[Rfam]
RNA sequence: GUCCGUUCAUCCAUAUUCAUGGACGCAUGAAACCAAGGCAUGGAACGGGGUCUUGGU
Dot-bracket structure: ...[[[[[.(((((....)))))........((((((((...]]]]]..))))))))
Numbered sequence: 001g002u003c004c005g006u007u008c009a010u011c012c013a014u015a016u017u018c019a020u021g022g023a024c025g026c027a028u029g030a031a032a033c034c035a036a037g038g039c040a041u042g043g044a045a046c047g048g049g050g051u052c053u054u055g056g057u
Stems, first nucleotide, its partner, number of pairs: 004047005010023005032057008